[Rfam]
Shown here is a 147-nucleotide sequence from Lupinus albus, a member of the family "Small nucleolar RNA snoR138". Rfam links the family to the GO terms nucleolus and RNA processing. Rfam classes the family as an H/ACA-box small nucleolar RNA. On this family, see Chen and Wu, Nucleic Acids Res 2009: "Mining small RNA sequencing data: a new approach to identify small nucleolar RNAs in Arabidopsis". Taxonomically the source falls in Lupinus (Eukaryota, Streptophytina, Mesangiospermae, rosids).
RNA sequence: UAUGCCUCUUGAAUAACCACACGGUGAAACAAACAAAUCCCGUGUGGUUCAGACAGAGGCGCAUAUCAAGUGUCAAAGCCCCGAAUUGGUUUGAGGGUACGGAUUGCUUUCUCCUCUGCAUCCUUACCUAGAUUUAUUUGGACAUCC
Numbered sequence: 001u002a003u004g005c006c007u008c009u010u011g012a013a014u015a016a017c018c019a020c021a022c023g024g025u026g027a028a029a030c031a032a033a034c035a036a037a038u039c040c041c042g043u044g045u046g047g048u049u050c051a052g053a054c055a056g057a058g059g060c061g062c063a064u065a066u067c068a069a070g071u072g073u074c075a076a077a078g079c080c081c082c083g084a085a086u087u088g089g090u091u092u093g094a095g096g097g098u099a100c101g102g103a104u105u106g107c108u109u110u111c112u113c114c115u116c117u118g119c120a121u122c123c124u125u126a127c128c129u130a131g132a133u134u135u136a137u138u139u140g141g142a143c144a145u146c147c
Stems, first nucleotide, its partner, number of pairs: 003061005009056001015049008024040001026038001082140005088128003093125003097122001101119001103117001106114001